[Rfam]
RNA: Small nucleolar RNA SNORA61
RNA sequence: UGCCCGCAGGUUCUUUCCCCAUUGGAUCUGAACACCAGUUUUGGUGGUUGUUAAAGGAGGAAAAGUAAUACUGAAGCUGGCCUCAUGGUGCUUGUAGUCUGCUCUAUAGCAUGUAGGCUAAUUUCAAAUAAAG
Numbered sequence: 001u002g003c004c005c006g007c008a009g010g011u012u013c014u015u016u017c018c019c020c021a022u023u024g025g026a027u028c029u030g031a032a033c034a035c036c037a038g039u040u041u042u043g044g045u046g047g048u049u050g051u052u053a054a055a056g057g058a059g060g061a062a063a064a065g066u067a068a069u070a071c072u073g074a075a076g077c078u079g080g081c082c083u084c085a086u087g088g089u090g091c092u093u094g095u096a097g098u099c100u101g102c103u104c105u106a107u108a109g110c111a112u113g114u115a116g117g118c119u120a121a122u123u124u125c126a127a128a129u130a131a132a133g
Base pairs, nucleotide, nucleotide: 003060004059007056019047020046021045022044023043025040026039027038078120079119080118081117082116083115093111094110095109